The record is an 85-nucleotide RNA sequence from Ramphastos sulfuratus, which matches "Small nucleolar RNA SNORD100" in Rfam.

[Rfam]
RNA sequence: AGCAUCUGUGAUGAAAAUUUGGCUCCCUCUGCUGAACCAAAUGAGGAGAAAAGCCUUAACCGUUACCCAACUCUUCUGAGAUGUC
Numbered sequence: 001a002g003c004a005u006c007u008g009u010g011a012u013g014a015a016a017a018u019u020u021g022g023c024u025c026c027c028u029c030u031g032c033u034g035a036a037c038c039a040a041a042u043g044a045g046g047a048g049a050a051a052a053g054c055c056u057u058a059a060c061c062g063u064u065a066c067c068c069a070a071c072u073c074u075u076c077u078g079a080g081a082u083g084u085c
Stems, first nucleotide, its partner, number of pairs: 002084005

Background: The base pairs follow the family's consensus structure, which was predicted with RNAalifold. Rfam 15.1 lists 838 matches to the family in 626 species.